[Rfam]
RNA sequence: GUAUUUAUAAAAGCGCCUGAACUAAGCAAAGAGACGGAACUGUUGCUUAGUUGACGAGGAGGAGGUUUAUCGAUAUUUCGGCGGAUGCCUCCCGGCUGAAUGUGACCACAGCCGUAAUUUUCUUGUCUAAAUCAGCGAGGUGACUCGUUGGACAACGACAGAAAAGUGGUUUCUU
Numbered sequence: 001g002u003a004u005u006u007a008u009a010a011a012a013g014c015g016c017c018u019g020a021a022c023u024a025a026g027c028a029a030a031g032a033g034a035c036g037g038a039a040c041u042g043u044u045g046c047u048u049a050g051u052u053g054a055c056g057a058g059g060a061g062g063a064g065g066u067u068u069a070u071c072g073a074u075a076u077u078u079c080g081g082c083g084g085a086u087g088c089c090u091c092c093c094g095g096c097u098g099a100a101u102g103u104g105a106c107c108a109c110a111g112c113c114g115u116a117a118u119u120u121u122c123u124u125g126u127c128u129a130a131a132u133c134a135g136c137g138a139g140g141u142g143a144c145u146c147g148u149u150g151g152a153c154a155a156c157g158a159c160a161g162a163a164a165a166g167u168g169g170u171u172u173c174u175u
Stems, first nucleotide, its partner, number of pairs: 020052008029043001061092005070081004093114006119165003123161003133150007